[Rfam]
RNA sequence: CCGGGCGGGCGGCCGCGUGGAGGUUCUUGUGGACCUCCCCGAGGAACGUCCGGGCUCCACAGGGCAGGGUGGUGGCUAACGGCCACCCGGGGUGACCCGCGGGACAGUGCCACAGAAAGCAAACCGCCCGGCGCUCAGGCGCUGGGUAAGGGUGAAACGGUGGUGUAAGAGACCACCAGUGCCCAGGGUGACCUGGGCAGCUAGGUAAACCCCACCCGGAGCAAGGUCAAGAGGGGCCGCUGUAAAAGGCGGCUCUGCGCGGACGUUCGAGGGCUGCCCGCCCGAGUCCGCGGGUAGACCGCACGAGGCCGGCGGCAACGCCGGCCCUAGAUGGAUGGCCGUCGCUCCGAGGUCCGCGAGGACCCCGGAGAACAGAACCCGGCGUAACAUCCGAAUGU
Dot-bracket structure: .((((..(((((((.((.((((((........)))))).))....[[[.[[[[[((((...[[[[.((((((((((.....)))))(((((....)))).)((...(((((............(((((((((((....)))))))))..)).......((((((.......)))))).(((((((((....)))))))).)..)))..)))))))))))))...((((..............................((((((......((((.]]]]))))..)))))).....))))......((((((((....))))))))..........)))))))..................................]]]]]]]]....)))).....

The family of this 398-nucleotide sequence from Streptomyces sp. HG99 is "Bacterial RNase P class A". The base pairs follow the family's consensus structure, which is taken from published work. By type it is a ribozyme. It scores 269 bits against the family's covariance model. Lineage of the source: Bacteria > Actinomycetes > Kitasatosporales > Streptomycetaceae > Streptomyces.